[Rfam]
RNA sequence: AAUAGGAGAAUGAUAAAUUAGAUUUUUUCUCCUCAUUUUUAGCAUUUUUAAUUGGAUUUGAAUUUUUUCAAAAGAAAAAUCUGAAAAUCAGGAGGAAAAAUCUGAUUUGUCAUUCUCCUAUU
Number, nucleotide and partner (000 for none) at each position: 001a122002a121003u120004a119005g118006g117007a116008g115009a114010a113011u112012g111013a110014u109015a108016a107017a106018u105019u104020a103021g102022a101023u100024u099025u098026u097027u096028u000029c094030u093031c092032c091033u090034c000035a088036u087037u086038u085039u084040u000041a082042g081043c000044a000045u078046u077047u076048u075049u000050a000051a000052u000053u000054g000055g000056a000057u000058u000059u000060g000061a000062a000063u000064u000065u000066u000067u000068u000069c000070a000071a000072a000073a000074g000075a048076a047077a046078a045079a000080u000081c042082u041083g000084a039085a038086a037087a036088u035089c000090a033091g032092g031093a030094g029095g000096a027097a026098a025099a024100a023101u022102c021103u020104g019105a018106u017107u016108u015109g014110u013111c012112a011113u010114u009115c008116u007117c006118c005119u004120a003121u002122u001